[Rfam]
RNA sequence: UUUCCUGCCGCCUUGGGUUAAAGACGGACCUCCCUGUUGGACUGGCCCGGGCUUCGCGCCCGGGCUUUUUU
Numbered sequence: 001u002u003u004c005c006u007g008c009c010g011c012c013u014u015g016g017g018u019u020a021a022a023g024a025c026g027g028a029c030c031u032c033c034c035u036g037u038u039g040g041a042c043u044g045g046c047c048c049g050g051g052c053u054u055c056g057c058g059c060c061c062g063g064g065c066u067u068u069u070u071u
Stems, first nucleotide, its partner, number of pairs: 008027003012023002045065008